RNA: Purine riboswitch aptamer
RNA sequence: AAGUUAAUGAACGAUGUACCUCAUAUAAUCUCGGGGAUAAGGCCCGUAAGUUUCUACCUGACCACCUUAAAUGGUCGGACUAUGAGGGAAGAUUGGACAUAC
Numbered sequence: 001a002a003g004u005u006a007a008u009g010a011a012c013g014a015u016g017u018a019c020c021u022c023a024u025a026u027a028a029u030c031u032c033g034g035g036g037a038u039a040a041g042g043c044c045c046g047u048a049a050g051u052u053u054c055u056a057c058c059u060g061a062c063c064a065c066c067u068u069a070a071a072u073g074g075u076c077g078g079a080c081u082a083u084g085a086g087g088g089a090a091g092a093u094u095g096g097a098c099a100u101a102c
Base pairs, nucleotide, nucleotide: 019087020086021085022084023083024082025081029049032046033045034044035043058078059077060076061075062074063073064072